[Rfam]
RNA sequence: GGUGUUUGUCCUAAGUCAAAGUUCUCUAACUUUGACCAAGUUUAUAUAAUAUAUUAACAUACACAAGACCAAAUAAAUGCACUAUUAAGACAUAUUUAAUGGUGAUCUAAUGAAACUAAUUUGAUGUUGUAGAUGUUGGUGAAUUUUUCUAUAAACUUGGCCAAAGUUGAAGAAGCUUGACCUAAGACAAAACUAA
Numbered sequence: 001g002g003u004g005u006u007u008g009u010c011c012u013a014a015g016u017c018a019a020a021g022u023u024c025u026c027u028a029a030c031u032u033u034g035a036c037c038a039a040g041u042u043u044a045u046a047u048a049a050u051a052u053a054u055u056a057a058c059a060u061a062c063a064c065a066a067g068a069c070c071a072a073a074u075a076a077a078u079g080c081a082c083u084a085u086u087a088a089g090a091c092a093u094a095u096u097u098a099a100u101g102g103u104g105a106u107c108u109a110a111u112g113a114a115a116c117u118a119a120u121u122u123g124a125u126g127u128u129g130u131a132g133a134u135g136u137u138g139g140u141g142a143a144u145u146u147u148u149c150u151a152u153a154a155a156c157u158u159g160g161c162c163a164a165a166g167u168u169g170a171a172g173a174a175g176c177u178u179g180a181c182c183u184a185a186g187a188c189a190a191a192a193c194u195a196a
Stems, first nucleotide, its partner, number of pairs: 005191005012184002015181005022174004031165004043151002046148001048146002052141003056137005063130003070123005
The record is a 196-nucleotide RNA sequence from Miscanthus lutarioriparius, which matches "MIR1435 microRNA precursor family" in Rfam. The family's consensus secondary structure was predicted with RNAalifold. The match comes from Rfam's covariance-model search (94 bits). Its family is annotated with miRNA-mediated post-transcriptional gene silencing and RISC complex in the Gene Ontology. Taxonomically the source falls in Miscanthus (Eukaryota, Andropogonodae, Andropogoneae, Saccharinae).